Description
The family of this 90-nucleotide RNA sequence from Limnobaculum parvum is "OmrA-B family". The organism belongs to Limnobaculum, within Bacteria. The literature on the family includes a 2006 paper in Mol Microbiol by Guillier and Gottesman, "Remodelling of the Escherichia coli outer membrane by two small regulatory RNAs". Rfam 15.1 lists 153 matches to the family in 128 species. The family's consensus secondary structure was predicted with WAR. Rfam classes the family as a small RNA.
[Rfam]
RNA sequence: CCCAGAGGUAUUUAUUGGUGAAUUUCUGGCGGUAACGCCGGAACCAUUUACUGGAUUACACCGACCUACGCGGAUGCGUAGGUUUUUUUU
Numbered sequence: 001c002c003c004a005g006a007g008g009u010a011u012u013u014a015u016u017g018g019u020g021a022a023u024u025u026c027u028g029g030c031g032g033u034a035a036c037g038c039c040g041g042a043a044c045c046a047u048u049u050a051c052u053g054g055a056u057u058a059c060a061c062c063g064a065c066c067u068a069c070g071c072g073g074a075u076g077c078g079u080a081g082g083u084u085u086u087u088u089u090u
Stems, first nucleotide, its partner, number of pairs: 016063005021052001031045003064083008